[Rfam]
This 120-nucleotide RNA from Chara braunii belongs to the Rfam family "U5 spliceosomal RNA".
The family's consensus secondary structure is taken from published work.

RNA sequence: AGCUGCGUGCCCAGCUCAGAGGGCGUACUAUUCUUUCGCCUUUUACUAAAGAAUACCGUGGGUUGAGCACAUACAAGCAGCUUAUCGGAAUUUUUGUCGGCUGCUCAAUUCGUUGGGCAG
Numbered sequence: 001a002g003c004u005g006c007g008u009g010c011c012c013a014g015c016u017c018a019g020a021g022g023g024c025g026u027a028c029u030a031u032u033c034u035u036u037c038g039c040c041u042u043u044u045a046c047u048a049a050a051g052a053a054u055a056c057c058g059u060g061g062g063u064u065g066a067g068c069a070c071a072u073a074c075a076a077g078c079a080g081c082u083u084a085u086c087g088g089a090a091u092u093u094u095u096g097u098c099g100g101c102u103g104c105u106c107a108a109u110u111c112g113u114u115g116g117g118c119a120g
Stems, first nucleotide, its partner, number of pairs: 003080004008069003012065007029055008101120005